[Rfam]
Rfam assigns this 267-nucleotide RNA sequence from Chengkuizengella marina to the family "Bacterial large signal recognition particle RNA". It scores 209 bits against the family's covariance model. By type it is a non-coding RNA gene. For this family Rfam cites "SRPDB: Signal Recognition Particle Database" (Rosenblad et al., Nucleic Acids Res, 2003).
Nucleotides: 267
Stems, first nucleotide, its partner, number of pairs: 001267006009058003012030004017025001019023001035055005064260007073251004081243009094230001097228005105221002107218003116212008124201006130192002133190005139182005149174004157166003
Number, partner (000 for none) and nucleotide at each position: 001267c002266c003265g004264u005263g006262c007000u008000a009058g010057a011056c012030g013029g014028g015027g016000a017025g018000g019023u020000a021000g022000c023019g024000g025017u026000g027015c028014c029013c030012u031000g032000u033000a034000a035055c036054c037053c038052g039051c040000a041000a042000u043000c044000c045000g046000c047000u048000a049000u050000a051039g052038c053037g054036g055035g056011g057010u058009u059000g060000a061000a062000u063000u064260c065259c066258a067257g068256u069255u070254a071000g072000a073251g074250g075249u076248a077000u078000u079000g080000u081243u082242g083241a084240u085239g086238u087237a088236a089235c090000g091000u092000c093000a094230g095000c096000c097228u098227u099226u100225u101224a102000c103000a104000c105221g106220u107218a108217g109216u110000g111000u112000u113000g114000a115000c116212g117211g118210u119209c120208a121207g122206g123205u124201c125200u126199c127198u128197c129196g130192c131191a132000a133190u134189g135188g136187a137186a138000g139182c140181c141180u142179g143178u144000g145000a146000a147000u148000c149174c150173g151172g152171u153000c154000a155000g156000g157166u158165u159164c160000g161000g162000a163000a164159g165158a166157a167000a168000g169000c170000a171152g172151c173150c174149g175000u176000a177000a178143g179142c180141a181140g182139g183000a184000u185000g186137u187136u188135c189134c190133a191131u192130g193000u194000g195000c196129c197128g198127a199126g200125g201124g202000g203000u204000c205123g206122c207121c208120u209119g210118a211117c212116u213000u214000g215000a216109g217108c218107u219000a220106a221105c222000g223000a224101u225100a226099a227098a228097a229000g230094c231000a232000g233000c234000g235089g236088u237087u238086a239085u240084g241083u242082c243081g244000c245000a246000a247000c248076u249075a250074u251073c252000a253000a254070u255069a256068a257067c258066u259065g260064g261000u262006g263005c264004a265003u266002g267001g